[Rfam]
RNA sequence: AGGGACCUCCGGGGCCCUAUAUAUCAAGAGACGGGAUCAACCUCCCGCAAAGCAAACGGAAGACAGAAA
Numbered sequence: 001a002g003g004g005a006c007c008u009c010c011g012g013g014g015c016c017c018u019a020u021a022u023a024u025c026a027a028g029a030g031a032c033g034g035g036a037u038c039a040a041c042c043u044c045c046c047g048c049a050a051a052g053c054a055a056a057c058g059g060a061a062g063a064c065a066g067a068a069a
Stems, first nucleotide, its partner, number of pairs: 001018004006014003030046001033043003
The record is a 69-nucleotide RNA from Roseobacter sp. HKCCD8822, which matches "L2-Alphaproteobacteria ribosomal protein leader" in Rfam. The base pairs follow the family's consensus structure, which is taken from published work. A search with the family's covariance model found it, with a score of 56 bits.